[Rfam]
RNA sequence: CUCCAGUGAUGAGCCUGCCAUGCUAAUACUGAUGCACCAGGCUGGACCGCGUGUCUGUCUGGGUGUAAGUGAGUUCAGCUCACCUCUCACACUGACAGUGUGCGCUGAGGAGA
Numbered sequence: 001c002u003c004c005a006g007u008g009a010u011g012a013g014c015c016u017g018c019c020a021u022g023c024u025a026a027u028a029c030u031g032a033u034g035c036a037c038c039a040g041g042c043u044g045g046a047c048c049g050c051g052u053g054u055c056u057g058u059c060u061g062g063g064u065g066u067a068a069g070u071g072a073g074u075u076c077a078g079c080u081c082a083c084c085u086c087u088c089a090c091a092c093u094g095a096c097a098g099u100g101u102g103c104g105c106u107g108a109g110g111a112g113a
Stems, first nucleotide, its partner, number of pairs: 001112004042057001045055002
The family of this 113-nucleotide RNA from Conger conger is "Small nucleolar RNA U6-53/MBII-28". Rfam classes the family as a C/D-box small nucleolar RNA. Its family is annotated with RNA processing and nucleolus in the Gene Ontology. The organism belongs to Conger, within Eukaryota.